[Rfam]
RNA: Flavo-1 RNA
Organism: Lutibacter sp. HS1-25
RNA sequence: AUUCAAUCGCGUUAAGGAUAGCAGCGGCAUCCUUUUUUGUAAUGAAGCUUGGCGUAAUUACAAAAAAGAUAUAGCGGAUAGCCUGGCCCCUU
Numbered sequence: 001a002u003u004c005a006a007u008c009g010c011g012u013u014a015a016g017g018a019u020a021g022c023a024g025c026g027g028c029a030u031c032c033u034u035u036u037u038u039g040u041a042a043u044g045a046a047g048c049u050u051g052g053c054g055u056a057a058u059u060a061c062a063a064a065a066a067a068g069a070u071a072u073a074g075c076g077g078a079u080a081g082c083c084u085g086g087c088c089c090c091u092u
Stems, first nucleotide, its partner, number of pairs: 015084003019080002024075002029070003035065008